[Rfam]
RNA sequence: ACGAUGUUCCGCUGCAAGAAAUAGGUAAAUAGAUAUGCAAGAGCAUCUG
Numbered sequence: 001a002c003g004a005u006g007u008u009c010c011g012c013u014g015c016a017a018g019a020a021a022u023a024g025g026u027a028a029a030u031a032g033a034u035a036u037g038c039a040a041g042a043g044c045a046u047c048u049g
Base pairs, nucleotide, nucleotide: 003047004046005045006044007043008042009041013039014038015037016036018034
Rfam assigns this 49-nucleotide RNA sequence from Bacillus sp. MUM 116 to the family "Ribosomal protein L19 leader". By type it is a cis-regulatory leader. Rfam links the family to the GO term regulation of gene expression. For this family Rfam cites "Diverse mechanisms for regulating ribosomal protein synthesis in Escherichia coli" (Zengel and Lindahl, Prog Nucleic Acid Res Mol Biol, 1994). The organism belongs to Bacillus, within Bacteria.